[Rfam]
RNA sequence: CGAUAUCAGGCGCCCCACUCCUCCUCCCAGGGGUUGUCUGUAGGAGCAGCGACACUCCUCCUCCCAGUCGCUGCUCGGUUCUUUUCGGAAAGCCUGCCGCACCUCCUCCCGCGGCAGGUUUUCUGG
Numbered sequence: 001c002g003a004u005a006u007c008a009g010g011c012g013c014c015c016c017a018c019u020c021c022u023c024c025u026c027c028c029a030g031g032g033g034u035u036g037u038c039u040g041u042a043g044g045a046g047c048a049g050c051g052a053c054a055c056u057c058c059u060c061c062u063c064c065c066a067g068u069c070g071c072u073g074c075u076c077g078g079u080u081c082u083u084u085u086c087g088g089a090a091a092g093c094c095u096g097c098c099g100c101a102c103c104u105c106c107u108c109c110c111g112c113g114g115c116a117g118g119u120u121u122u123c124u125g126g
Base pairs, nucleotide, nucleotide: 007040008039009038011036012035013033014032015031016030044076045075046074047073048072049071050070051069052068053067090121091120092119093118094117095116096115097114098113099112100111

Rfam assigns this 126-nucleotide RNA from Rhizobium sp. RU36D to the family "Alphaproteobacterial ar14". It is annotated as a small RNA. Pairs were carried over by alignment from the consensus structure. Smr14C2 was renamed NfeR1 (Nodule Formation Efficiency RNA) highly expressed in salt stress and during the symbiotic interaction on legume roots. A search with the family's covariance model found it, with a score of 101 bits.